[Rfam]
RNA sequence: CGCGCGGGCCGGGCCCCUCUGGCGACCUUGCUGACAAGGUCGUGAUGUCGGACCGCAUCG
Numbered sequence: 001c002g003c004g005c006g007g008g009c010c011g012g013g014c015c016c017c018u019c020u021g022g023c024g025a026c027c028u029u030g031c032u033g034a035c036a037a038g039g040u041c042g043u044g045a046u047g048u049c050g051g052a053c054c055g056c057a058u059c060g
Stems, first nucleotide, its partner, number of pairs: 006054002009051004022043008

Rfam assigns this 60-nucleotide RNA from Sphingomonas rhizophila to the family "terC RNA". The family's consensus secondary structure is taken from published work. NCBI's taxonomy places the organism under Bacteria, Pseudomonadati, Pseudomonadota, Sphingomonadaceae, Sphingomonas.